Notes: Shown here is an 81-nucleotide sequence from Notechis scutatus, a member of the family "mir-26 microRNA precursor family". The source organism's lineage runs through Eukaryota, Craniata, Tetrapoda, Bifurcata and Notechis. The literature on the family includes a 2002 paper in Curr Biol by Lagos-Quintana et al., "Identification of tissue-specific microRNAs from mouse".
[Rfam]
RNA sequence: CUGCGGCUAGGUUCAAGUAAUCCAGGAUAGGCUGUAGGUACUGCAACCAGCCUGUUCUCGAUUACUUGGCCUUGGAGGCAG
Numbered sequence: 001c002u003g004c005g006g007c008u009a010g011g012u013u014c015a016a017g018u019a020a021u022c023c024a025g026g027a028u029a030g031g032c033u034g035u036a037g038g039u040a041c042u043g044c045a046a047c048c049a050g051c052c053u054g055u056u057c058u059c060g061a062u063u064a065c066u067u068g069g070c071c072u073u074g075g076a077g078g079c080a081g
Base pairs, nucleotide, nucleotide: 002080003079004078007075008074009073010072011071014068015067016066017065018064019063020062021061022060024058025057026056027055028054029053030052031051032050033049